[Rfam]
Nucleotides: 058
Stems, first nucleotide, its partner, number of pairs: 002055008012045006019039003
Number, partner (000 for none) and nucleotide at each position: 001000u002055g003054u004053a005052a006051c007050a008049g009048c010000a011000a012045c013044u014043c015042c016041a017040u018000g019039u020038g021037g022000a023000a024000g025000u026000g027000u028000c029000u030000g031000c032000u033000g034000g035000u036000u037021c038020c039019a040017g041016u042015g043014g044013g045012g046000c047000u048009g049008c050007u051006g052005u053004u054003a055002u056000c057000u058000g